[Rfam]
RNA sequence: GUGUCAAUGAUGAAAUCUUAGCCUUGUCUCUAGAGAGGUGUUGUCUUAAAACUCAUGCACAAUAGAGUUACACUGAGGAC
Numbered sequence: 001g002u003g004u005c006a007a008u009g010a011u012g013a014a015a016u017c018u019u020a021g022c023c024u025u026g027u028c029u030c031u032a033g034a035g036a037g038g039u040g041u042u043g044u045c046u047u048a049a050a051a052c053u054c055a056u057g058c059a060c061a062a063u064a065g066a067g068u069u070a071c072a073c074u075g076a077g078g079a080c
Stems, first nucleotide, its partner, number of pairs: 001080002004078001005075002008072002
Dot-bracket structure: ((.(((.((.............................................................)).))..)))
A member of the RNA family "Small nucleolar RNA SNORD115" from Carlito syrichta, 80 nucleotides long. Pairs were carried over by alignment from the consensus structure, which was predicted with PFOLD. A reference for the family is Cavaille et al. (2000), "Identification of brain-specific and imprinted small nucleolar RNA genes exhibiting an unusual genomic organization", Proc Natl Acad Sci U S A. The family has 32 seed sequences and 3,387 matches in Rfam 15.1. NCBI's taxonomy places the organism under Eukaryota, Gnathostomata, Dipnotetrapodomorpha, Primates, Carlito. Gene Ontology terms of the family: RNA processing and nucleolus.